Shown here is a 96-nucleotide RNA sequence, a member of the family "ATPC RNA motif". Rfam classes the family as a non-coding RNA gene.

RNA sequence: AGAGCAUCAUUAGGUUCUUUAGGUACUUUUGAACCUGCGCAGGUCCGAUGAGUUUCGGGCCCAUUUCAAAAAAAAUUUUGAGAUGUCCCCCACGCA
Numbered sequence: 001a002g003a004g005c006a007u008c009a010u011u012a013g014g015u016u017c018u019u020u021a022g023g024u025a026c027u028u029u030u031g032a033a034c035c036u037g038c039g040c041a042g043g044u045c046c047g048a049u050g051a052g053u054u055u056c057g058g059g060c061c062c063a064u065u066u067c068a069a070a071a072a073a074a075a076u077u078u079u080g081a082g083a084u085g086u087c088c089c090c091c092a093c094g095c096a
Stems, first nucleotide, its partner, number of pairs: 002017004036096004042061007062085009